[Rfam]
RNA sequence: AGCCCGGGAGUGCACCUGUGGGAGGGUGCGCAGGUAUUGGGCCUUCUUCCCGUUUCGCAAGCGGCCGGCGGCUGAGGCCCGACAGCCCGCCCG
Dot-bracket structure: .((((....((((((((......)))))))).......))))......................(.((((((((........))))).))).)

Rfam assigns this 93-nucleotide RNA to the family "Rhodo-rpoB RNA". By type it is a cis-regulatory element. The sequence is in the family's curated seed alignment.